Rfam assigns this 67-nucleotide sequence from Bacillus sp. V5-8f to the family "Bacillaceae-1 RNA". A search with the family's covariance model found it, with a score of 39 bits. Pairs were carried over by alignment from the consensus structure, which is taken from published work. The family has 95 seed sequences and 5,721 matches in Rfam 15.1.
RNA sequence: AACAAUGGACCAUCGACUAACUGCUGCCACGUCCUGUGGCAAAUGUCGACGCCAGCAUAAGGAAUGC
Numbered sequence: 001a002a003c004a005a006u007g008g009a010c011c012a013u014c015g016a017c018u019a020a021c022u023g024c025u026g027c028c029a030c031g032u033c034c035u036g037u038g039g040c041a042a043a044u045g046u047c048g049a050c051g052c053c054a055g056c057a058u059a060a061g062g063a064a065u066g067c
Stems, first nucleotide, its partner, number of pairs: 011051001013049005026040005055067004